[Rfam]
RNA sequence: AUCUUAGUGCAUGGGUUUUACGCAUAUCAGUGAGGAUUCGUCCGAGAUUGCGUUUUUGCUAGUUGAAAACUAUAACCAUGACCACUCCAGGUUGGCUUCGGCCGGCCUGGGAAUCUUUGGAACCAAACAUCUUCU
Numbered sequence: 001a002u003c004u005u006a007g008u009g010c011a012u013g014g015g016u017u018u019u020a021c022g023c024a025u026a027u028c029a030g031u032g033a034g035g036a037u038u039c040g041u042c043c044g045a046g047a048u049u050g051c052g053u054u055u056u057u058g059c060u061a062g063u064u065g066a067a068a069a070c071u072a073u074a075a076c077c078a079u080g081a082c083c084a085c086u087c088c089a090g091g092u093u094g095g096c097u098u099c100g101g102c103c104g105g106c107c108u109g110g111g112a113a114u115c116u117u118u119g120g121a122a123c124c125a126a127a128c129a130u131c132u133u134c135u
Base pairs, nucleotide, nucleotide: 020053021052022051023050024049026048027047028046034043035042036041086111087110088109089108090107091106092105093104094103095102096101
RNA: U4 spliceosomal RNA